[Rfam]
Nucleotides: 223
Base pairs, nucleotide, nucleotide: 001108002107003106004105005104006103007102008043009042010041011040012039014035015034016033019028020027021026046100047099048098049097055093056092057091058090059087061085062084064080065079153215154214155213156212157211158210159209170201171200172199173198174197175196179188180187181186
Number, partner (000 for none) and nucleotide at each position: 001108c002107c003106a004105a005104c006103g007102u008043g009042g010041g011040c012039a013000u014035c015034c016033c017000g018000u019028g020027a021026g022000g023000c024000u025000g026021c027020u028019c029000u030000c031000a032000u033016g034015g035014g036000c037000u038000c039012u040011g041010u042009c043008c044000u045000g046100g047099u048098g049097g050000c051000g052000u053000a054000u055093g056092g057091g058090a059087g060000c061085g062084u063000a064080g065079u066000g067000u068000c069000u070000g071000a072000a073000g074000g075000c076000g077000c078000u079065a080064u081000g082000a083000c084062g085061u086000a087059u088000a089000u090058u091057c092056c093055c094000c095000u096000u097049c098048c099047a100046c101000g102007a103006c104005g105004u106003u107002g108001g109000a110000g111000a112000g113000c114000a115000u116000g117000c118000g119000u120000g121000u122000c123000c124000c125000c126000g127000g128000g129000c130000c131000u132000u133000u134000g135000g136000u137000c138000u139000g140000g141000u142000g143000u144000g145000g146000a147000c148000g149000g150000c151000g152000u153215c154214c155213u156212g157211u158210a159209u160000a161000u162000u163000c164000c165000u166000a167000a168000a169000a170201c171200u172199u173198u174197c175196c176000u177000g178000a179188g180187c181186c182000c183000u184000c185000g186181g187180g188179c189000a190000g191000u192000g193000a194000c195000u196175g197174g198173g199172g200171a201170g202000g203000c204000a205000a206000a207000c208000c209159a210158u211157g212156c213155a214154g215153g216000a217000u218000a219000c220000a221000u222000a223000a

Small nucleolar RNA SNORA73 family: a 223-nucleotide RNA sequence from Leptobrachium leishanense. Rfam classes the family as an H/ACA-box small nucleolar RNA. The family's consensus secondary structure is taken from published work. It scores 195 bits against the family's covariance model. From the family's description: U17 (SNORA73A and SNORA73B) also known as E1 belongs to the H/ACA class of small nucleolar RNAs (snoRNAs).